[Rfam]
RNA sequence: GCCCCGAUAGUCCAAUGGCAGAGACAAUGUGCUCAAACCACAUCCAGUGUGGGUUCGAAUCCCACUCGGGGCA
Numbered sequence: 001g002c003c004c005c006g007a008u009a010g011u012c013c014a015a016u017g018g019c020a021g022a023g024a025c026a027a028u029g030u031g032c033u034c035a036a037a038c039c040a041c042a043u044c045c046a047g048u049g050u051g052g053g054u055u056c057g058a059a060u061c062c063c064a065c066u067c068g069g070g071g072c073a
Stems, first nucleotide, its partner, number of pairs: 001072007010025003027043005049065005
RNA: tRNA